RNA sequence: GGCGACAAUUGAAAAACACUUCGUAUAAUCUUGAGAAUAGGCUCAGGAGUCUCUACGGAUCACCGGAAUGAUCUCUCUACGGAAUGAAGCAAUGGCAGU
Numbered sequence: 001g002g003c004g005a006c007a008a009u010u011g012a013a014a015a016a017c018a019c020u021u022c023g024u025a026u027a028a029u030c031u032u033g034a035g036a037a038u039a040g041g042c043u044c045a046g047g048a049g050u051c052u053c054u055a056c057g058g059a060u061c062a063c064c065g066g067a068a069u070g071a072u073c074u075c076u077c078u079a080c081g082g083a084a085u086g087a088a089g090c091a092a093u094g095g096c097a098g099u
Stems, first nucleotide, its partner, number of pairs: 018085001020083006029048007057075001058073005
Dot-bracket structure: .................(.((((((...(((((((......)))))))........((((((......))))).)..)))))).)..............

Shown here is a 99-nucleotide RNA sequence from Paenibacillus nuruki, a member of the family "Purine riboswitch aptamer". It scores 52 bits against the family's covariance model. The source organism's lineage runs through Bacteria, Bacillota, Bacilli, Caryophanales and Paenibacillus.